[Rfam]
Description
Rfam assigns this 86-nucleotide RNA from Actinidia chinensis to the family "mir-160 microRNA precursor family". Taxonomically the source falls in Actinidia chinensis (Eukaryota, Streptophytina, Gunneridae, Ericales). Its family is annotated with miRNA-mediated post-transcriptional gene silencing and RISC complex in the Gene Ontology.
RNA sequence: GUCUGCCUGGCUCCCUGAAUGCCAAUUAAGAAGCAUUUCAAAGUAUUGAGUCUCUUCUUAAUUGGCAUCAGCGGAGUCAAGCAGAC
Number, nucleotide and partner (000 for none) at each position: 001g086002u085003c084004u083005g082006c081007c000008u079009g078010g077011c076012u075013c074014c073015c000016u071017g000018a000019a068020u067021g066022c065023c064024a063025a000026u000027u060028a059029a058030g000031a000032a000033g000034c000035a000036u000037u000038u000039c000040a000041a000042a000043g000044u000045a000046u000047u000048g000049a000050g000051u000052c000053u000054c000055u000056u000057c000058u029059u028060a027061a000062u000063u024064g023065g022066c021067a020068u019069c000070a000071g016072c000073g014074g013075a012076g011077u010078c009079a008080a000081g006082c005083a004084g003085a002086c001